[Rfam]
RNA sequence: AAUACUUUUCAGGGUCAGGUGAAAUUCCUAACCGGUGGUAUAGCCCACGAGCCGCAAGGCAUGAUUCGGUGUAACUCCGAAGCCGACAGUACAGUCUGGAUGAAAGAAAAGGUCA
Numbered sequence: 001a002a003u004a005c006u007u008u009u010c011a012g013g014g015u016c017a018g019g020u021g022a023a024a025u026u027c028c029u030a031a032c033c034g035g036u037g038g039u040a041u042a043g044c045c046c047a048c049g050a051g052c053c054g055c056a057a058g059g060c061a062u063g064a065u066u067c068g069g070u071g072u073a074a075c076u077c078c079g080a081a082g083c084c085g086a087c088a089g090u091a092c093a094g095u096c097u098g099g100a101u102g103a104a105a106g107a108a109a110a111g112g113u114c115a
Base pairs, nucleotide, nucleotide: 005111006110007109008108009107010106017029018028019027031095032094033085034084035048036047037046038045043083044082053059065081066080067079068078069077087098088097089096
The record is a 115-nucleotide RNA from Eubacterium sp. CAG:38, which matches "FMN riboswitch aptamer (RFN element)" in Rfam. Lineage of the source: Bacteria > Clostridia > Eubacteriales > Eubacteriaceae > Eubacterium. Rfam's curators write: The RFN element is a highly conserved domain that is found frequently in the 5'-untranslated regions of prokaryotic mRNAs that encode for flavin mononucleotide (FMN) biosynthesis and transport proteins. Pairs were carried over by alignment from the consensus structure, which is taken from published work. The family has 146 seed sequences and 6,230 matches in Rfam 15.1.